[Rfam]
RNA sequence: AAUCUAUCAAAAGCGCCAGAGCAAAAUCUAUAAUGCAGACGAGGAGAAUGGUGAUCGAAAAUUCGGCGGAUGCCAUUCCGGCCAUAACGGUCGUAAACUUUAUCUUUAAAACGGGUUGGUGACAAUGCGAACAAAGAGAUAAAGUCCAAUGAUU
Numbered sequence: 001a002a003u004c005u006a007u008c009a010a011a012a013g014c015g016c017c018a019g020a021g022c023a024a025a026a027u028c029u030a031u032a033a034u035g036c037a038g039a040c041g042a043g044g045a046g047a048a049u050g051g052u053g054a055u056c057g058a059a060a061a062u063u064c065g066g067c068g069g070a071u072g073c074c075a076u077u078c079c080g081g082c083c084a085u086a087a088c089g090g091u092c093g094u095a096a097a098c099u100u101u102a103u104c105u106u107u108a109a110a111a112c113g114g115g116u117u118g119g120u121g122a123c124a125a126u127g128c129g130a131a132c133a134a135a136g137a138g139a140u141a142a143a144g145u146c147c148a149a150u151g152a153u154u
Base pairs, nucleotide, nucleotide: 021036022035023034046078047077048076049075050074055066056065057064058063079093080092081091082090083089098144099143100142101141102140103139104138112129113128115126116125117124118123

This 154-nucleotide sequence from Abyssicoccus albus belongs to the Rfam family "glmS glucosamine-6-phosphate activated ribozyme aptamer". The base pairs follow the family's consensus structure, which is taken from published work. It scores 106 bits against the family's covariance model.